[Rfam]
RNA sequence: UGCUCGAUGAUGAUUGUCUCGUGUGAUUGUUCUUUUGCAAGAGCAGAAUGAACAUACCAUUUCACCGGCUCUGAGAGCU
Dot-bracket structure: .((((.....................................................................)))).
RNA: Small nucleolar RNA SNORD102